RNA: Eukaryotic large subunit ribosomal RNA, nucleotides 2599 to 3105
Organism: Gallus gallus
RNA sequence: AAGUCGGCAAGCCGGAUCCGUAACUUCGGGAUAAGGAUUGGCUCUAAGGGCUGGGUCGGUCGGGCUGGGGCGCGAAGCGGGGCUGGGCGCGCGCCGCGGCUGGACGAGGCGCCGCCCGCCCCCGCCCCCCCCUUUCCCCGCUCCCGCUCGCCGGGGCGCCGGGGGGGGGGGUCAGCGGGCGGCGCGGCGGCGGCGACUCUGGACGCGCGCCGGGCCCUUCCCGUGGAUCGCCCCAGCUGCGGCGGGCGCCGCUCGCCCCCCUCCUUGCCCCUCCGCCCCCCCGCUCCCGGCGCCCCUCCCGUCGGCCGUCGUCCCGGCCGCCCCCCGUCCCGAGCGCCCUCCUCGCGAGGGCGCGAGGGGCGGCGGCGGCGGCCGCGGGCGCGGCGGCGGCGGGGGGGGGGCCCGCCGGUGGCGCCGGGCGGGGCGGUCCCGGGCGGGGGGGGUCUCCGGGCCGGCGCCCCGCCUCGGCCGGCGCCUAGCAGCCGGCUUAGAACUGGUGCGGACCAG
Numbered sequence: 001a002a003g004u005c006g007g008c009a010a011g012c013c014g015g016a017u018c019c020g021u022a023a024c025u026u027c028g029g030g031a032u033a034a035g036g037a038u039u040g041g042c043u044c045u046a047a048g049g050g051c052u053g054g055g056u057c058g059g060u061c062g063g064g065c066u067g068g069g070g071c072g073c074g075a076a077g078c079g080g081g082g083c084u085g086g087g088c089g090c091g092c093g094c095c096g097c098g099g100c101u102g103g104a105c106g107a108g109g110c111g112c113c114g115c116c117c118g119c120c121c122c123c124g125c126c127c128c129c130c131c132c133u134u135u136c137c138c139c140g141c142u143c144c145c146g147c148u149c150g151c152c153g154g155g156g157c158g159c160c161g162g163g164g165g166g167g168g169g170g171g172u173c174a175g176c177g178g179g180c181g182g183c184g185c186g187g188c189g190g191c192g193g194c195g196a197c198u199c200u201g202g203a204c205g206c207g208c209g210c211c212g213g214g215c216c217c218u219u220c221c222c223g224u225g226g227a228u229c230g231c232c233c234c235a236g237c238u239g240c241g242g243c244g245g246g247c248g249c250c251g252c253u254c255g256c257c258c259c260c261c262u263c264c265u266u267g268c269c270c271c272u273c274c275g276c277c278c279c280c281c282c283g284c285u286c287c288c289g290g291c292g293c294c295c296c297u298c299c300c301g302u303c304g305g306c307c308g309u310c311g312u313c314c315c316g317g318c319c320g321c322c323c324c325c326c327g328u329c330c331c332g333a334g335c336g337c338c339c340u341c342c343u344c345g346c347g348a349g350g351g352c353g354c355g356a357g358g359g360g361c362g363g364c365g366g367c368g369g370c371g372g373c374c375g376c377g378g379g380c381g382c383g384g385c386g387g388c389g390g391c392g393g394g395g396g397g398g399g400g401g402c403c404c405g406c407c408g409g410u411g412g413c414g415c416c417g418g419g420c421g422g423g424g425c426g427g428u429c430c431c432g433g434g435c436g437g438g439g440g441g442g443g444u445c446u447c448c449g450g451g452c453c454g455g456c457g458c459c460c461c462g463c464c465u466c467g468g469c470c471g472g473c474g475c476c477u478a479g480c481a482g483c484c485g486g487c488u489u490a491g492a493a494c495u496g497g498u499g500c501g502g503a504c505c506a507g
Stems, first nucleotide, its partner, number of pairs: 015039005024029001040495002043492006049484005055473009496500001